[Rfam]
RNA sequence: UGUACCCUUUGGGGUUAGGUGUAAUUCCUUACCGGCGGUUAAAGCCCGCGAACCAGUAAAUGGUUGAACCGAUGAAAUUACGGUGCCGACGGUUAAAGUCCGGAUGGGAAAAGGGUUAA
Numbered sequence: 001u002g003u004a005c006c007c008u009u010u011g012g013g014g015u016u017a018g019g020u021g022u023a024a025u026u027c028c029u030u031a032c033c034g035g036c037g038g039u040u041a042a043a044g045c046c047c048g049c050g051a052a053c054c055a056g057u058a059a060a061u062g063g064u065u066g067a068a069c070c071g072a073u074g075a076a077a078u079u080a081c082g083g084u085g086c087c088g089a090c091g092g093u094u095a096a097a098g099u100c101c102g103g104a105u106g107g108g109a110a111a112a113g114g115g116u117u118a119a
Stems, first nucleotide, its partner, number of pairs: 004116007017029003031099002033088002035049004044086002052064003068084004090102003

FMN riboswitch aptamer (RFN element): a 119-nucleotide sequence from Candidatus Psychracetigena formicireducens. The base pairs follow the family's consensus structure, which is taken from published work.